[Rfam]
Actinomyces-1 RNA: a 110-nucleotide RNA sequence from Actinomyces howellii. The family's consensus secondary structure is taken from published work. The organism belongs to Actinomyces, within Bacteria. By type it is a small RNA.
RNA sequence: ACUGCCGCUGGACGGAGGCGGGCCACGAGGGUUGGGGAACCUGAUGACGGGCUCGCAGCCGAGACGGCGGGGGUCGAAGGGAGCCCCUGCUGGUCGCUCCGGCGAAGGAG
Numbered sequence: 001a002c003u004g005c006c007g008c009u010g011g012a013c014g015g016a017g018g019c020g021g022g023c024c025a026c027g028a029g030g031g032u033u034g035g036g037g038a039a040c041c042u043g044a045u046g047a048c049g050g051g052c053u054c055g056c057a058g059c060c061g062a063g064a065c066g067g068c069g070g071g072g073g074u075c076g077a078a079g080g081g082a083g084c085c086c087c088u089g090c091u092g093g094u095c096g097c098u099c100c101g102g103c104g105a106a107g108g109a110g
Base pairs, nucleotide, nucleotide: 006104007103008102009101010100011099012098013061014060015059019055020054021053022052023051024050029042030041031040032039033038063095064094065093066091067090070087071086072085073084074083